[Rfam]
RNA sequence: CACACACGCUAGGGGAGCCUUUGGCUGAGAUUGGUAGAAACCGAACCCUCACUACUUGAACCGGAUAAUGCCGGCGUAAGGAAGCAUCAGUAGUCCCCU
Dot-bracket structure: .....(.(((((((..(((...)))......((((....))))..)))).....((((..((((......))))..))))..))).)............

TPP riboswitch aptamer (THI element): a 99-nucleotide sequence from Lacrimispora saccharolytica.
Rfam links the family to the GO term thiamine pyrophosphate binding.
The match comes from Rfam's covariance-model search (63 bits).
Vitamin B(1) in its active form thiamin pyrophosphate (TPP) is an essential coenzyme that is synthesised by coupling of pyrimidine and thiazole moieties in bacteria.